[Rfam]
RNA sequence: UAGGCGAGGGGGCUGGGGGCUGCCGGGCUUUAUGCCCGAGGAAGUUCCGCCCACCGCACCGGGGCCGCGGUGCCGUAAGGCACCUCCCGAGAGGGAGGGCAACGGCGCAGAAACGACACGUCCUCCGAGGGAUGGGAAUGAAAGCGGUGAAGGGGGCUGGUGACAGCUCCCGAGCUAACCCGCAGACGACCUCGGGGGGAUCGGUGAAACGGCCGUCCCGCGGGGUGCAAGGCCGAAAGAGGGACGAUGAGUUCCCGGUGUGAGUCCCGUGGUUGGCCGCUUAGUCGAAUGCUCCCUUAAUACAGAAGGCGGGCUAUAGCCCCCUCGCCUA
Numbered sequence: 001u002a003g004g005c006g007a008g009g010g011g012g013c014u015g016g017g018g019g020c021u022g023c024c025g026g027g028c029u030u031u032a033u034g035c036c037c038g039a040g041g042a043a044g045u046u047c048c049g050c051c052c053a054c055c056g057c058a059c060c061g062g063g064g065c066c067g068c069g070g071u072g073c074c075g076u077a078a079g080g081c082a083c084c085u086c087c088c089g090a091g092a093g094g095g096a097g098g099g100c101a102a103c104g105g106c107g108c109a110g111a112a113a114c115g116a117c118a119c120g121u122c123c124u125c126c127g128a129g130g131g132a133u134g135g136g137a138a139u140g141a142a143a144g145c146g147g148u149g150a151a152g153g154g155g156g157c158u159g160g161u162g163a164c165a166g167c168u169c170c171c172g173a174g175c176u177a178a179c180c181c182g183c184a185g186a187c188g189a190c191c192u193c194g195g196g197g198g199g200a201u202c203g204g205u206g207a208a209a210c211g212g213c214c215g216u217c218c219c220g221c222g223g224g225g226u227g228c229a230a231g232g233c234c235g236a237a238a239g240a241g242g243g244a245c246g247a248u249g250a251g252u253u254c255c256c257g258g259u260g261u262g263a264g265u266c267c268c269g270u271g272g273u274u275g276g277c278c279g280c281u282u283a284g285u286c287g288a289a290u291g292c293u294c295c296c297u298u299a300a301u302a303c304a305g306a307a308g309g310c311g312g313g314c315u316a317u318a319g320c321c322c323c324c325u326c327g328c329c330u331a
Stems, first nucleotide, its partner, number of pairs: 004328003008324007015296006024038005043315003047312005052227004057260006065223005070083005084097005098218002103215004119203002122198008147175002231278004241268005
The family of this 331-nucleotide sequence from Pyrococcus furiosus is "Archaeal RNase P".
Taxonomically the source falls in Pyrococcus (Archaea, Methanobacteriota, Thermococci, Thermococcaceae).
Its family is annotated with multimeric ribonuclease P complex, tRNA processing and ribonuclease P activity in the Gene Ontology.
Ribonuclease P (RNase P) is a ubiquitous endoribonuclease, found in archaea, bacteria and eukarya as well as chloroplasts and mitochondria. Its best characterised activity is the generation of mature 5'-ends of tRNAs by cleaving the 5'-leader elements of precursor-tRNAs. Cellular RNase Ps are ribonucleoproteins. RNA from bacterial RNase Ps retains its catalytic activity in the absence of the protein subunit, i.e. it is a ribozyme.
It is annotated as a ribozyme.
On this family, see Frank and Pace, Annu Rev Biochem 1998: "Ribonuclease P: unity and diversity in a tRNA processing ribozyme".